[Rfam]
A member of the RNA family "small nucleolar RNA snoR114" from Gossypium mustelinum, 88 nucleotides long. Rfam links the family to the GO terms nucleolus and RNA processing. The match comes from Rfam's covariance-model search (73 bits).
RNA sequence: AAGCUGUGACGAUAUCUGCGCUCUAGCGGAGCUUGGGUUCUUCGCAAUCGUCUGAUUUCAAGACGAUAUCAACGGCGCUUCUGAGCUU
Numbered sequence: 001a002a003g004c005u006g007u008g009a010c011g012a013u014a015u016c017u018g019c020g021c022u023c024u025a026g027c028g029g030a031g032c033u034u035g036g037g038u039u040c041u042u043c044g045c046a047a048u049c050g051u052c053u054g055a056u057u058u059c060a061a062g063a064c065g066a067u068a069u070c071a072a073c074g075g076c077g078c079u080u081c082u083g084a085g086c087u088u
Stems, first nucleotide, its partner, number of pairs: 001088004